[Rfam]
RNA: Small nucleolar RNA snoR97
Organism: Salvia splendens
RNA sequence: UAUAAAUCAUGUGGGCUGAGUGUCUGAAAAACUCGUAAAUCAAAGGUGUUGUCAUCAGCUUCUCUCAGAUUUGCUACGAAACUGGAGUUAAGUAACAGCACUAGAUUA
Numbered sequence: 001u002a003u004a005a006a007u008c009a010u011g012u013g014g015g016c017u018g019a020g021u022g023u024c025u026g027a028a029a030a031a032c033u034c035g036u037a038a039a040u041c042a043a044a045g046g047u048g049u050u051g052u053c054a055u056c057a058g059c060u061u062c063u064c065u066c067a068g069a070u071u072u073g074c075u076a077c078g079a080a081a082c083u084g085g086a087g088u089u090a091a092g093u094a095a096c097a098g099c100a101c102u103a104g105a106u107u108a
Stems, first nucleotide, its partner, number of pairs: 045102007057089006063081001065079002